[Rfam]
RNA sequence: AGGUAUAAAAAUGCAGGCAGGAAUCAGUCUAGAGAUAACGAGGUUAGUUCAAUCAGGGAGGAUGAGGCUCUCUUCUAGCAGUUGAGGUGUUAGAAGAGGGCCUCAUCCUCCCUGAUUGAACUAACCUCGUUAUCUCUAGACUGAUUCCUGCCUGCAUUUUUAUACCU
Dot-bracket structure: (((((((.(((((((.(((.((((((((.((((.(((((.((((((((..((.((.((..(((...((((((((((((((.......))))))))))))))...)))..)).)).))..)))))))).))))).)))).)))))))).))).))))))).)))))))